A member of the RNA family "mir-9261 microRNA precursor family" from Cnephaeus nilssonii, 97 nucleotides long. The source organism's lineage runs through Eukaryota, Chordata, Gnathostomata, Euteleostomi and Cnephaeus.
RNA sequence: AACAAUUUGUCCCGCAUCCCACGGCGUUUUAAAAAAAGUCCCAUUUUCUUCAAAAUAGGAUUUUUAAAACGCCGUGGGACGCGGGACAAAUUGUUAA
Numbered sequence: 001a002a003c004a005a006u007u008u009g010u011c012c013c014g015c016a017u018c019c020c021a022c023g024g025c026g027u028u029u030u031a032a033a034a035a036a037a038g039u040c041c042c043a044u045u046u047u048c049u050u051c052a053a054a055a056u057a058g059g060a061u062u063u064u065u066a067a068a069a070c071g072c073c074g075u076g077g078g079a080c081g082c083g084g085g086a087c088a089a090a091u092u093g094u095u096a097a
Stems, first nucleotide, its partner, number of pairs: 001095015017079019